[Rfam]
RNA sequence: CCAUUGAGUUUCCACUAGGUGGUUAACAGUGCCGCCUGAGAAGGCGGGCGCUAGUCGGCCUAGUAAGCCGGCAAGAUCGUCAAAGUGCGGGGACACGUUGCUACUCCUUCGGUAGGGCUCCUGGGUCGAAAGGCUCCAGCGGGCACCCGGGCUAACUCCCCGUGGGUAUCCUAACAACCUGAAGGCUAGACGCAAUCCGCAGCCAAGUCCUAAGUCGGGCGAGCAGCCCGGUAUGGAUGCAGUUCACAGACCAGAUGUCGAUCGGGGAGAUUCCCUUAAGAUAUGGUCGGGCCCCACCGAGAGGUGGCC
Numbered sequence: 001c002c003a004u005u006g007a008g009u010u011u012c013c014a015c016u017a018g019g020u021g022g023u024u025a026a027c028a029g030u031g032c033c034g035c036c037u038g039a040g041a042a043g044g045c046g047g048g049c050g051c052u053a054g055u056c057g058g059c060c061u062a063g064u065a066a067g068c069c070g071g072c073a074a075g076a077u078c079g080u081c082a083a084a085g086u087g088c089g090g091g092g093a094c095a096c097g098u099u100g101c102u103a104c105u106c107c108u109u110c111g112g113u114a115g116g117g118c119u120c121c122u123g124g125g126u127c128g129a130a131a132g133g134c135u136c137c138a139g140c141g142g143g144c145a146c147c148c149g150g151g152c153u154a155a156c157u158c159c160c161c162g163u164g165g166g167u168a169u170c171c172u173a174a175c176a177a178c179c180u181g182a183a184g185g186c187u188a189g190a191c192g193c194a195a196u197c198c199g200c201a202g203c204c205a206a207g208u209c210c211u212a213a214g215u216c217g218g219g220c221g222a223g224c225a226g227c228c229c230g231g232u233a234u235g236g237a238u239g240c241a242g243u244u245c246a247c248a249g250a251c252c253a254g255a256u257g258u259c260g261a262u263c264g265g266g267g268a269g270a271u272u273c274c275c276u277u278a279a280g281a282u283a284u285g286g287u288c289g290g291g292c293c294c295c296a297c298c299g300a301g302a303g304g305u306g307g308c309c
Stems, first nucleotide, its partner, number of pairs: 075263005081257002086201006096192004202243002207238004215231005247289001249288005265275004294307005
Shown here is a 309-nucleotide RNA sequence from Mobilicoccus pelagius, a member of the family "Group I catalytic intron". Group I catalytic introns are large self-splicing ribozymes. They catalyse their own excision from mRNA, tRNA and rRNA precursors in a wide range of organisms. The family's consensus secondary structure is taken from published work. A search with the family's covariance model found it, with a score of 87 bits.